[Rfam]
RNA: MIR6274 microRNA precursor family
RNA sequence: GGAUAUCACUUUUUGCUAUUCCCGGCCAAUAACACAGUAACACGUAGGAUAAUUUUCCAUGUGUCAUUGUGUUAUUGACCGAGGAUAGCAAAACAGUGAUAUCC
Numbered sequence: 001g002g003a004u005a006u007c008a009c010u011u012u013u014u015g016c017u018a019u020u021c022c023c024g025g026c027c028a029a030u031a032a033c034a035c036a037g038u039a040a041c042a043c044g045u046a047g048g049a050u051a052a053u054u055u056u057c058c059a060u061g062u063g064u065c066a067u068u069g070u071g072u073u074a075u076u077g078a079c080c081g082a083g084g085a086u087a088g089c090a091a092a093a094c095a096g097u098g099a100u101a102u103c104c
Base pairs, nucleotide, nucleotide: 002103003102004101005100011093012092013091014090015089016088017087018086019085021083023081024080025079027077028076029075030074031073032072033071034070035069036068037067038066040064041063042062043061044060045059047057048056049055